[Rfam]
RNA sequence: UGGGUAUUCGCCAAACCGGUAAGGCAACGGACUCUGAAUCCGUAAUUUGUAGGUUCGAGCCCUACAUACCCAA
Dot-bracket structure: (((((((..(((..........))).(((((.......))))).....(((((.......)))))))))))).

tRNA: a 73-nucleotide RNA sequence from Bombilactobacillus apium. Gene Ontology term of the family: triplet codon-amino acid adaptor activity. Rfam classes the family as a transfer RNA.